[Rfam]
RNA sequence: AUGGUGCAUCCGUACGCGGUCGAUCCCCUCGACCUGUGCCCAGGCAGCCGAUGGUCUUCAAGGCUGCGCUGCGUGUCAUCGCAGUGACUGCGCCAGUCCGCUUCGCAUCGCUCGCCGCGGACGCUCAUCCCCACCGGAUGACGAUGC
Number, nucleotide and partner (000 for none) at each position: 001a000002u000003g000004g000005u000006g000007c000008a000009u000010c000011c038012g037013u036014a000015c000016g034017c000018g000019g033020u032021c031022g030023a029024u000025c000026c000027c000028c000029u023030c022031g021032a020033c019034c016035u000036g013037u012038g011039c000040c000041c000042a000043g000044g067045c066046a065047g064048c063049c062050g000051a000052u000053g089054g088055u087056c086057u000058u000059c000060a000061a000062g049063g048064c047065u046066g045067c044068g085069c084070u083071g082072c081073g080074u000075g000076u000077c000078a000079u000080c073081g072082c071083a070084g069085u068086g056087a055088c054089u053090g000091c000092g000093c000094c000095a000096g000097u000098c000099c000100g000101c000102u000103u000104c000105g000106c000107a000108u000109c000110g000111c000112u000113c000114g000115c000116c000117g147118c146119g145120g000121a000122c000123g000124c000125u141126c140127a139128u138129c137130c136131c000132c000133a000134c000135c000136g130137g129138a128139u127140g126141a125142c000143g000144a000145u119146g118147c117